[Rfam]
RNA sequence: UAUGGUCUUCGGGGCAGGGUGCAAUUCCCUACCGGCGGUUACAGUCCGCGAGCGCAAGCAGAGCCCGGUGAAAUUCCGGCACCGACAGUAUAGUCUGGAUGGAAGAAGGCAUGU
Numbered sequence: 001u002a003u004g005g006u007c008u009u010c011g012g013g014g015c016a017g018g019g020u021g022c023a024a025u026u027c028c029c030u031a032c033c034g035g036c037g038g039u040u041a042c043a044g045u046c047c048g049c050g051a052g053c054g055c056a057a058g059c060a061g062a063g064c065c066c067g068g069u070g071a072a073a074u075u076c077c078g079g080c081a082c083c084g085a086c087a088g089u090a091u092a093g094u095c096u097g098g099a100u101g102g103a104a105g106a107a108g109g110c111a112u113g114u
Stems, first nucleotide, its partner, number of pairs: 005110006017029003031094002033084002035049004044082002052059002063080002066078003086097003
Background
The record is a 114-nucleotide sequence from Mageeibacillus indolicus, which matches "FMN riboswitch aptamer (RFN element)" in Rfam. Its family is annotated with FMN binding in the Gene Ontology. NCBI's taxonomy places the organism under Bacteria, Bacillati, Eubacteriales, Mageeibacillus, Mageeibacillus indolicus. Pairs were carried over by alignment from the consensus structure, which is taken from published work. It scores 108 bits against the family's covariance model.